[Rfam]
RNA sequence: UUCCUCUGAUUCGCGGAAGAGGCUGAAAAUCUCAGGAGACCAUGUAUUGUCACCAGCUUCAUCUUUUGUUCCUACGAGAUGGGAGUUAAAUAACGACAUAAGAUUC
Numbered sequence: 001u002u003c004c005u006c007u008g009a010u011u012c013g014c015g016g017a018a019g020a021g022g023c024u025g026a027a028a029a030u031c032u033c034a035g036g037a038g039a040c041c042a043u044g045u046a047u048u049g050u051c052a053c054c055a056g057c058u059u060c061a062u063c064u065u066u067u068g069u070u071c072c073u074a075c076g077a078g079a080u081g082g083g084a085g086u087u088a089a090a091u092a093a094c095g096a097c098a099u100a101a102g103a104u105u106c
Stems, first nucleotide, its partner, number of pairs: 043100003047096003055087006062079004
The record is a 106-nucleotide RNA sequence from Triticum aestivum, which matches "Small nucleolar RNA snoR97" in Rfam.
The organism belongs to Triticum, within Eukaryota.